Source information: This 106-nucleotide RNA sequence from Tannerella forsythia belongs to the Rfam family "Bacteroidales small SRP". It is annotated as a non-coding RNA gene. The family is grouped with related families in Rfam's "SRP clan". Rfam's curators put it in the seed alignment.

[Rfam]
RNA sequence: UGUGCCGGGAAAGUCCUACACGACCAGCUCCCUCGGAAUCCCCCAGGGCUUGAUCGCAGCAAGGGUACUUGGUUGUAGCGGUGCGAUGUAGGCAGCUUUCCCACCC
Numbered sequence: 001u002g003u004g005c006c007g008g009g010a011a012a013g014u015c016c017u018a019c020a021c022g023a024c025c026a027g028c029u030c031c032c033u034c035g036g037a038a039u040c041c042c043c044c045a046g047g048g049c050u051u052g053a054u055c056g057c058a059g060c061a062a063g064g065g066u067a068c069u070u071g072g073u074u075g076u077a078g079c080g081g082u083g084c085g086a087u088g089u090a091g092g093c094a095g096c097u098u099u100c101c102c103a104c105c106c
Stems, first nucleotide, its partner, number of pairs: 007102008016091005021085002023082002
Dot-bracket structure: ......((((((((.(((((((((........................................................)).)).)))))...))))))))....